[Rfam]
RNA sequence: GUCAGCUACCCAAGCCUAAAAGGCCUGGGCUUGUAAAAGCCCCACGCUGAUCAGCCUAAGUGCUUAGCGCACUACGUUAGAUCGGAAAUAGGUACCAGAGGGUGCUUGCCAGCCCCCUGCUCUACGGUAAGUGGUUAAACAGGUCUAAGGGGUUAAACCAGUGCUGCUUACGUUAAAUCCGAUCAUAACAUUGGCGAGGCAAACAUUAC
Numbered sequence: 001g002u003c004a005g006c007u008a009c010c011c012a013a014g015c016c017u018a019a020a021a022g023g024c025c026u027g028g029g030c031u032u033g034u035a036a037a038a039g040c041c042c043c044a045c046g047c048u049g050a051u052c053a054g055c056c057u058a059a060g061u062g063c064u065u066a067g068c069g070c071a072c073u074a075c076g077u078u079a080g081a082u083c084g085g086a087a088a089u090a091g092g093u094a095c096c097a098g099a100g101g102g103u104g105c106u107u108g109c110c111a112g113c114c115c116c117c118u119g120c121u122c123u124a125c126g127g128u129a130a131g132u133g134g135u136u137a138a139a140c141a142g143g144u145c146u147a148a149g150g151g152g153u154u155a156a157a158c159c160a161g162u163g164c165u166g167c168u169u170a171c172g173u174u175a176a177a178u179c180c181g182a183u184c185a186u187a188a189c190a191u192u193g194g195c196g197a198g199g200c201a202a203a204c205a206u207u208a209c
Stems, first nucleotide, its partner, number of pairs: 001051006010029002012026001015023002030039003054195003058191001059073005076189004080184006092125002096119003100115004106203002108200003127171009139162002142159003146155003
RNA: HNH endonuclease-associated RNA and ORF (HEARO) RNA